Rfam assigns this 126-nucleotide sequence from Capsicum baccatum to the family "U11 spliceosomal RNA". Its family is annotated with mRNA 5'-splice site recognition, U11 snRNP and pre-mRNA 5'-splice site binding in the Gene Ontology. The family's consensus secondary structure is taken from published work. The match comes from Rfam's covariance-model search (68 bits). NCBI's taxonomy places the organism under Eukaryota, Streptophyta, Spermatophyta, Magnoliopsida, Capsicum.
[Rfam]
RNA sequence: AAGAAGGGUCGGUUUGCUAAAUAUGCCACCCUCACCUUUGCGGUGAGUGCUGUAUGGCUAUCAAGACAUAUGGCCGACAUAAUUUGUGGAAACACAAAGGGUUGGCUCUCAUUGGCCGACCCUCUU
Numbered sequence: 001a002a003g004a005a006g007g008g009u010c011g012g013u014u015u016g017c018u019a020a021a022u023a024u025g026c027c028a029c030c031c032u033c034a035c036c037u038u039u040g041c042g043g044u045g046a047g048u049g050c051u052g053u054a055u056g057g058c059u060a061u062c063a064a065g066a067c068a069u070a071u072g073g074c075c076g077a078c079a080u081a082a083u084u085u086g087u088g089g090a091a092a093c094a095c096a097a098a099g100g101g102u103u104g105g106c107u108c109u110c111a112u113u114g115g116c117c118g119a120c121c122c123u124c125u126u
Base pairs, nucleotide, nucleotide: 008078009077010076011075012074015028016027018025019024029049031047032046033045034044035043036042050073051072052071053070054069055068056067097123099121101120102119103118104117105116109115110114